[Rfam]
RNA sequence: AGAUGAGAGAUACACCCCGCCCACAGGGGACUGUGGGUGGUUUCAGGCCGGGGCCUCCCCAGCUUCGACCUGGUCGUGCUUAGCGCACACAUCCGGGGCCUGACGGCUUCGGGAUCUCCUCACCGAUCGGA
Numbered sequence: 001a002g003a004u005g006a007g008a009g010a011u012a013c014a015c016c017c018c019g020c021c022c023a024c025a026g027g028g029g030a031c032u033g034u035g036g037g038u039g040g041u042u043u044c045a046g047g048c049c050g051g052g053g054c055c056u057c058c059c060c061a062g063c064u065u066c067g068a069c070c071u072g073g074u075c076g077u078g079c080u081u082a083g084c085g086c087a088c089a090c091a092u093c094c095g096g097g098g099c100c101u102g103a104c105g106g107c108u109u110c111g112g113g114a115u116c117u118c119c120u121c122a123c124c125g126a127u128c129g130g131a
Stems, first nucleotide, its partner, number of pairs: 004122004009118002017040010043073005049067006076088004093112008123130002